[Rfam]
RNA sequence: GUCGAUAUGUCCGAGUGGUUAAGGAGACAGACUUGAAAUCUCUUGGGUUUCGCCCGCGCAGGUUCGAACCCUGCUGUCGACG
Numbered sequence: 001g002u003c004g005a006u007a008u009g010u011c012c013g014a015g016u017g018g019u020u021a022a023g024g025a026g027a028c029a030g031a032c033u034u035g036a037a038a039u040c041u042c043u044u045g046g047g048u049u050u051c052g053c054c055c056g057c058g059c060a061g062g063u064u065c066g067a068a069c070c071c072u073g074c075u076g077u078c079g080a081c082g
Base pairs, nucleotide, nucleotide: 001081002080003079004078005077006076007075010025011024012023027043029041030040031039058074059073060072061071062070
Dot-bracket structure: (((((((..(((..........))).(.(((.......))).)..............(((((.......)))))))))))).